Description: Archaeal signal recognition particle RNA: a 316-nucleotide RNA from Methanohalobium evestigatum. Clan: SRP clan. Pairs were carried over by alignment from the consensus structure, which is taken from published work. Rfam links the family to the GO terms SRP-dependent cotranslational protein targeting to membrane, signal sequence recognition and signal recognition particle, plasma membrane targeting. On this family, see Wild et al., Curr Opin Struct Biol 2002: "Towards the structure of the mammalian signal recognition particle". Lineage of the source: Archaea > Methanobacteriati > Methanomicrobia > Methanosarcinales > Methanohalobium evestigatum.
[Rfam]
RNA sequence: CGGCGGGCUAGCCCGGGUGGUUCGGCGUCACCUGUAACCUGAAAUACGUCGAUAUGCAGGGGGCGAAGCCGAUGGAAGGUGUCCUUCUCGUUUUCAAACCUGGGGUUUCAACUAAGAAGCUCCGUCCUGCUUGGACGAUGUUAAUACGGAGGCUUCCCGGAAGGUAGGUUUCCGUAUUUUAACCGCGAGAACCGGUCUAGGCCCGGAAGGGAGCAGACUAACCGCGGACAUCCGUCGCUUGCAGGGUUGCGGGGUGGAGAAGAAACCACAGAUAAUUUGGAAACGAGAAGGGCAUCAACCUGAGGCGUGUCCGCCA
Numbered sequence: 001c002g003g004c005g006g007g008c009u010a011g012c013c014c015g016g017g018u019g020g021u022u023c024g025g026c027g028u029c030a031c032c033u034g035u036a037a038c039c040u041g042a043a044a045u046a047c048g049u050c051g052a053u054a055u056g057c058a059g060g061g062g063g064c065g066a067a068g069c070c071g072a073u074g075g076a077a078g079g080u081g082u083c084c085u086u087c088u089c090g091u092u093u094u095c096a097a098a099c100c101u102g103g104g105g106u107u108u109c110a111a112c113u114a115a116g117a118a119g120c121u122c123c124g125u126c127c128u129g130c131u132u133g134g135a136c137g138a139u140g141u142u143a144a145u146a147c148g149g150a151g152g153c154u155u156c157c158c159g160g161a162a163g164g165u166a167g168g169u170u171u172c173c174g175u176a177u178u179u180u181a182a183c184c185g186c187g188a189g190a191a192c193c194g195g196u197c198u199a200g201g202c203c204c205g206g207a208a209g210g211g212a213g214c215a216g217a218c219u220a221a222c223c224g225c226g227g228a229c230a231u232c233c234g235u236c237g238c239u240u241g242c243a244g245g246g247u248u249g250c251g252g253g254g255u256g257g258a259g260a261a262g263a264a265a266c267c268a269c270a271g272a273u274a275a276u277u278u279g280g281a282a283a284c285g286a287g288a289a290g291g292g293c294a295u296c297a298a299c300c301u302g303a304g305g306c307g308u309g310u311c312c313g314c315c316a
Stems, first nucleotide, its partner, number of pairs: 002315007011064004015033007038060004043055001068306003074300002078296005083290001085288001087287012100271003104267006112259002119255007126245005133238001134236004138231003143178013157164002183227005194219004202211003